Shown here is a 172-nucleotide sequence from Paraglaciecola sp. MB-3u-78, a member of the family "Group II catalytic intron D1-D4-3". For this family Rfam cites "Group II introns: structure and catalytic versatility of large natural ribozymes" (Lehmann and Schmidt, Crit Rev Biochem Mol Biol, 2003). The organism belongs to Paraglaciecola, within Bacteria.
[Rfam]
RNA sequence: UUCAUUGUGAGGUGAAAUCUGAAGAAAGCUGAAAGCAAAGCACUGGCCUGACGAACAGAAAUCGUAUAUUAGGCGUUCGCAGUGGGUGAGAAGGCCAAUAUCUUCAAAGCCCAAUACUUGUCCAGACACUGCGGACGUAGAUACGGCAGGCAUAAGUGUGAAGGUCACGCGC
Numbered sequence: 001u002u003c004a005u006u007g008u009g010a011g012g013u014g015a016a017a018u019c020u021g022a023a024g025a026a027a028g029c030u031g032a033a034a035g036c037a038a039a040g041c042a043c044u045g046g047c048c049u050g051a052c053g054a055a056c057a058g059a060a061a062u063c064g065u066a067u068a069u070u071a072g073g074c075g076u077u078c079g080c081a082g083u084g085g086g087u088g089a090g091a092a093g094g095c096c097a098a099u100a101u102c103u104u105c106a107a108a109g110c111c112c113a114a115u116a117c118u119u120g121u122c123c124a125g126a127c128a129c130u131g132c133g134g135a136c137g138u139a140g141a142u143a144c145g146g147c148a149g150g151c152a153u154a155a156g157u158g159u160g161a162a163g164g165u166c167a168c169g170c171g172c
Stems, first nucleotide, its partner, number of pairs: 001016006028172002035165002040159005046151005062146006073138003077134007084112004090105004